About this RNA:
The family of this 403-nucleotide sequence from Roseicitreum antarcticum is "Bacterial RNase P class A". The organism belongs to Roseicitreum, within Bacteria. The base pairs follow the family's consensus structure, which is taken from published work.

RNA sequence: GCGGAUGGCUGGAUGACCGCGUGCCCGCACGGGUCCGCAAGGAUACCAUCGGGCGCGAGGAAAGUCCGGACUCCAUGAAGGAAGGGUGCCGGGUAACGCCCGGCCGGGGCAACCCGAGGGAAAGCGCCACAGAGAACAGACGGCCCCACAGGCCGGGCAACCGGUCCGGGGUCACGGUGAAACGGUGGGGUAAAAGCCCACCGCGUGCCUGGUAACAGGGACGGCAUGGCAAGCCCCACCCGGAGCAAUGCCGAAUAGGGACCCCAGGCGGUACACCGCAGGGAACUUCAGCCCCGGGGUCCGGGUUGGCAGCUAGAUCCUGUUGGCAACGACAGGGGCAGAUGAAUGGUCAUCGCCGGGGGCAACUCCGGUACAGAAUCCGGCUUACAGGCCAUCCGCGUAU
Numbered sequence: 001g002c003g004g005a006u007g008g009c010u011g012g013a014u015g016a017c018c019g020c021g022u023g024c025c026c027g028c029a030c031g032g033g034u035c036c037g038c039a040a041g042g043a044u045a046c047c048a049u050c051g052g053g054c055g056c057g058a059g060g061a062a063a064g065u066c067c068g069g070a071c072u073c074c075a076u077g078a079a080g081g082a083a084g085g086g087u088g089c090c091g092g093g094u095a096a097c098g099c100c101c102g103g104c105c106g107g108g109g110c111a112a113c114c115c116g117a118g119g120g121a122a123a124g125c126g127c128c129a130c131a132g133a134g135a136a137c138a139g140a141c142g143g144c145c146c147c148a149c150a151g152g153c154c155g156g157g158c159a160a161c162c163g164g165u166c167c168g169g170g171g172u173c174a175c176g177g178u179g180a181a182a183c184g185g186u187g188g189g190g191u192a193a194a195a196g197c198c199c200a201c202c203g204c205g206u207g208c209c210u211g212g213u214a215a216c217a218g219g220g221a222c223g224g225c226a227u228g229g230c231a232a233g234c235c236c237c238a239c240c241c242g243g244a245g246c247a248a249u250g251c252c253g254a255a256u257a258g259g260g261a262c263c264c265c266a267g268g269c270g271g272u273a274c275a276c277c278g279c280a281g282g283g284a285a286c287u288u289c290a291g292c293c294c295c296g297g298g299g300u301c302c303g304g305g306u307u308g309g310c311a312g313c314u315a316g317a318u319c320c321u322g323u324u325g326g327c328a329a330c331g332a333c334a335g336g337g338g339c340a341g342a343u344g345a346a347u348g349g350u351c352a353u354c355g356c357c358g359g360g361g362g363c364a365a366c367u368c369c370g371g372u373a374c375a376g377a378a379u380c381c382g383g384c385u386u387a388c389a390g391g392c393c394a395u396c397c398g399c400g401u402a403u
Stems, first nucleotide, its partner, number of pairs: 001399010011388001012354007020057008062386003066383005071245004080289003084241005089103005104118001105116004119236002124234002126230003141176002143172005150165001184202006203225001204223003208219004249311004259302006281295003318337008
The family's RNA type in Rfam is ribozyme. The match comes from Rfam's covariance-model search (286 bits). Ribonuclease P (RNase P) is a ubiquitous endoribonuclease, found in archaea, bacteria and eukarya as well as chloroplasts and mitochondria. Its best characterised activity is the generation of mature 5'-ends of tRNAs by cleaving the 5'-leader elements of precursor-tRNAs. Cellular RNase Ps are ribonucleoproteins.